Shown here is a 116-nucleotide sequence from Thalictrum thalictroides, a member of the family "U5 spliceosomal RNA". The family has 180 seed sequences and 28,527 matches in Rfam 15.1. A search with the family's covariance model found it, with a score of 85 bits.
[Rfam]
RNA sequence: AAUCGUGUGGUGAACACAGAGCGAACUAUUAUUUCGCCUUUUACUAAAGAAUACCGUGUGUUCGCCACUCAUAACGGCAUACGCCUAUUUUUGGAGGGUUCUCCUAUUCAGGGGCC
Numbered sequence: 001a002a003u004c005g006u007g008u009g010g011u012g013a014a015c016a017c018a019g020a021g022c023g024a025a026c027u028a029u030u031a032u033u034u035c036g037c038c039u040u041u042u043a044c045u046a047a048a049g050a051a052u053a054c055c056g057u058g059u060g061u062u063c064g065c066c067a068c069u070c071a072u073a074a075c076g077g078c079a080u081a082c083g084c085c086u087a088u089u090u091u092u093g094g095a096g097g098g099u100u101c102u103c104c105u106a107u108u109c110a111g112g113g114g115c116c
Base pairs, nucleotide, nucleotide: 003077004076005075006074008067009066010065011064012063013062014061015060016059017058018057027053028052029051030050032048033047034046097116098115099114100113101112102111
The base pairs follow the family's consensus structure, which is taken from published work. It is annotated as a spliceosomal small nuclear RNA.